[Rfam]
RNA sequence: CUUACAGAGUUUAUUGGCAUUCUGUCCACCUCCCAUCAUGGAAAGGCCCUCUUCUUUUCGCUUCUGAUCUUUCAUGGAGGUGGGCAUACUGCCAACUGAUCUCUGUUGG
Numbered sequence: 001c002u003u004a005c006a007g008a009g010u011u012u013a014u015u016g017g018c019a020u021u022c023u024g025u026c027c028a029c030c031u032c033c034c035a036u037c038a039u040g041g042a043a044a045g046g047c048c049c050u051c052u053u054c055u056u057u058u059c060g061c062u063u064c065u066g067a068u069c070u071u072u073c074a075u076g077g078a079g080g081u082g083g084g085c086a087u088a089c090u091g092c093c094a095a096c097u098g099a100u101c102u103c104u105g106u107u108g109g
Stems, first nucleotide, its partner, number of pairs: 011099001014095006023086011
This 109-nucleotide RNA from Durio zibethinus belongs to the Rfam family "MIR394 microRNA precursor family". Rfam links the family to the GO terms miRNA-mediated post-transcriptional gene silencing and RISC complex. Rfam 15.1 lists 724 matches to the family in 216 species. The family's consensus secondary structure was predicted with WAR. A search with the family's covariance model found it, with a score of 90 bits. The organism belongs to Durio, within Eukaryota.